RNA sequence: GUUGCUCACUCUCCCUCAAGGGCUUCUGCACUUUGGCCAUGGCCAUAUACCAAUGUGGGGCAAGUGGGAAAGAGGGUAGAAGCUCUUGAGGGGGACUGAAGAA
Numbered sequence: 001g002u003u004g005c006u007c008a009c010u011c012u013c014c015c016u017c018a019a020g021g022g023c024u025u026c027u028g029c030a031c032u033u034u035g036g037c038c039a040u041g042g043c044c045a046u047a048u049a050c051c052a053a054u055g056u057g058g059g060g061c062a063a064g065u066g067g068g069a070a071a072g073a074g075g076g077u078a079g080a081a082g083c084u085c086u087u088g089a090g091g092g093g094g095a096c097u098g099a100a101g102a103a
Base pairs, nucleotide, nucleotide: 006099007098008097010095011094012093013092014091015090017088018087019086020085021084022083023082024081025080026079027078028077029076